[Rfam]
RNA: Plant small nucleolar RNA R71
RNA sequence: UGAUGAUAUUAAGGGUAAUUUCUAAGCAUACCCUUAAAUCUUUCCAAAACUUGGUAAAGAUUUUCUCCUUCUUUCUGCAUGAAACUCAGUAUCUCACUUCUCAAAUA
Dot-bracket structure: (..(((..................................................((..............))..........................)).)..)